[Rfam]
RNA sequence: CAUUUCCCCCGACGUGACACAACAUCCUGCUGAGGUGUUGUGCUCUGGCCUGCAGUGUCAGUCGGCGGAAAUG
Numbered sequence: 001c002a003u004u005u006c007c008c009c010c011g012a013c014g015u016g017a018c019a020c021a022a023c024a025u026c027c028u029g030c031u032g033a034g035g036u037g038u039u040g041u042g043c044u045c046u047g048g049c050c051u052g053c054a055g056u057g058u059c060a061g062u063c064g065g066c067g068g069a070a071a072u073g
Base pairs, nucleotide, nucleotide: 001073002072003071004070005069006068007067009065010064011063012062013061021039022038023037024036025035026034047059048058049057
Dot-bracket structure: (((((((.(((((.......((((((.......)))))).......(((.......))).))))).)))))))

A member of the RNA family "bZIP non canonical Hac1/Xbp1 intron" from Phaeoacremonium minimum, 73 nucleotides long. bZIP intron RNA is a non-canonical intron that was first reported in HAC1 gene in yeast and XBP1 gene in Metazoa. Rfam classes the family as a small RNA. The match comes from Rfam's covariance-model search (48 bits). The base pairs follow the family's consensus structure, which was predicted with RNAfold. On this family, see Hooks and Griffiths-Jones, RNA Biol 2011: "Conserved RNA structures in the non-canonical Hac1/Xbp1 intron".